[Rfam]
A member of the RNA family "Small nucleolar RNA SNORD75" from Aquarana catesbeiana, 63 nucleotides long. The family's RNA type in Rfam is C/D-box small nucleolar RNA. For this family Rfam cites "Purified box C/D snoRNPs are able to reproduce site-specific 2'-O-methylation of target RNA in vitro" (Galardi et al., Mol Cell Biol, 2002). Its family is annotated with RNA processing and nucleolus in the Gene Ontology.
RNA sequence: AGCCUAUGAUGCUGUGAGUAGUGGACAGAAGUGAUUUCUGACAUCUUUAGUAACACUGAGGCU
Numbered sequence: 001a002g003c004c005u006a007u008g009a010u011g012c013u014g015u016g017a018g019u020a021g022u023g024g025a026c027a028g029a030a031g032u033g034a035u036u037u038c039u040g041a042c043a044u045c046u047u048u049a050g051u052a053a054c055a056c057u058g059a060g061g062c063u
Stems, first nucleotide, its partner, number of pairs: 001063004